RNA sequence: UGUUCAUUAUAAUAUAAAACUUAUAUAAGCUUAUGAUAAGGAUAAGCGUUUCUACCAACUACCGUAAAUAGUUGAUUAUAAGUGAACCAUGCUAGUGG
Number, nucleotide and partner (000 for none) at each position: 001u000002g000003u000004u000005c000006a000007u000008u000009a000010u000011a000012a000013u000014a000015u000016a000017a000018a000019a083020c082021u081022u080023a079024u078025a077026u000027a000028a000029g047030c046031u045032u044033a043034u042035g000036a000037u000038a000039a000040g000041g000042a034043u033044a032045a031046g030047c029048g000049u000050u000051u000052c000053u000054a000055c000056c074057a073058a072059c071060u070061a069062c000063c000064g000065u000066a000067a000068a000069u061070a060071g059072u058073u057074g056075a000076u000077u025078a024079u023080a022081a021082g020083u019084g000085a000086a000087c000088c000089a000090u000091g000092c000093u000094a000095g000096u000097g000098g000
RNA: Purine riboswitch aptamer